[Rfam]
RNA: U12 minor spliceosomal RNA
Nucleotides: 153
Stems, first nucleotide, its partner, number of pairs: 004023005033052004039046001055070004085153005092148007101137002105134004111128005
Number, partner (000 for none) and nucleotide at each position: 001000g002000u003000g004023c005022c006021u007020u008019a009000a010000a011000c012000u013000a014000a015000u016000g017000a018000g019008u020007a021006a022005g023004g024000a025000a026000a027000a028000u029000a030000u031000c032000g033052a034051g035050c036049c037000u038000c039046g040000g041000u042000a043000a044000c045000g046039c047000u048000u049036g050035g051034c052033u053000a054000a055070u056069g057068u058067g059000a060000u061000u062000u063000u064000a065000a066000u067058c068057a069056u070055a071000c072000c073000c074000u075000a076000a077000u078000u079000u080000u081000u082000c083000u084000a085153g086152a087151g088150g089149c090000a091000c092148a093147g094146g095145u096144c097143g098142u099000c100000c101137c102136c103000u104000u105134g106133a107132g108131c109000a110000g111128c112127u113126u114125g115124u116000c117000u118000a119000c120000u121000u122000u123000c124115a125114c126113a127112g128111g129000c130000g131108g132107u133106u134105c135000g136102g137101g138000u139000g140000a141000a142098g143097c144096g145095a146094u147093c148092u149089g150088c151087c152086u153085c